[Rfam]
RNA sequence: GUGCAUUUAGUAGGAAUUAAACCUACGAAUUUAUUUCAAUUAUAAGUUGAACGCUUUAACCAAUCAGCUAUGGAUGC
Numbered sequence: 001g002u003g004c005a006u007u008u009a010g011u012a013g014g015a016a017u018u019a020a021a022c023c024u025a026c027g028a029a030u031u032u033a034u035u036u037c038a039a040u041u042a043u044a045a046g047u048u049g050a051a052c053g054c055u056u057u058a059a060c061c062a063a064u065c066a067g068c069u070a071u072g073g074a075u076g077c
Base pairs, nucleotide, nucleotide: 003077004076005075006074007073008072010026011025012024013023014022042071043070044069046068047067048066049065050064053061

Plastid-ycf2 5UTR RNA: a 77-nucleotide sequence from Gossypium mustelinum.
Lineage of the source: Eukaryota > Viridiplantae > Streptophyta > Pentapetalae > Gossypium.
By type it is a cis-regulatory element.
From the family's description: Plastid ycf2 is a non-coding RNA (ncRNA) recognised in plastids. It was found in the prime untranslated region (5UTR) of ycf2 genes, it presents a tRNA-like motif which suggests it can be involved in mRNA maturation, particularly involved in defining the precise 5' end of the transcript.
On this family, see Richter et al., Plant Commun 2023: "Retrograde signaling in plants: A critical review focusing on the GUN pathway and beyond".